[Rfam]
RNA sequence: AGGCAAUAAGUAGCGCAUGGGCCAGGCUAGAGGAGGAAGCCUGGCUGACGAGGUGGAGGCUGUUCGGAGCAUCAGCGGGGAGCCUCCAGGGCCGGUCACAGCCCUGAGAAGUAAGCACACAAAACUGGGUGGUAACACACAGGCCAAAGUGUUUACGGUGCGGUAG
Numbered sequence: 001a002g003g004c005a006a007u008a009a010g011u012a013g014c015g016c017a018u019g020g021g022c023c024a025g026g027c028u029a030g031a032g033g034a035g036g037a038a039g040c041c042u043g044g045c046u047g048a049c050g051a052g053g054u055g056g057a058g059g060c061u062g063u064u065c066g067g068a069g070c071a072u073c074a075g076c077g078g079g080g081a082g083c084c085u086c087c088a089g090g091g092c093c094g095g096u097c098a099c100a101g102c103c104c105u106g107a108g109a110a111g112u113a114a115g116c117a118c119a120c121a122a123a124a125c126u127g128g129g130u131g132g133u134a135a136c137a138c139a140c141a142g143g144c145c146a147a148a149g150u151g152u153u154u155a156c157g158g159u160g161c162g163g164u165a166g
Base pairs, nucleotide, nucleotide: 020046021045022044023043024042025041026040027039055087056086057085058084059083064075066073067072088105089104090103091102092101111156112155113154114153115152116151117150125142126141127140129138130137131136
Dot-bracket structure: ...................((((((((...........))))))))........(((((....(.((....)).).......)))))(((((........))))).....(((((((.......(((.(((....))).))).......)))))))..........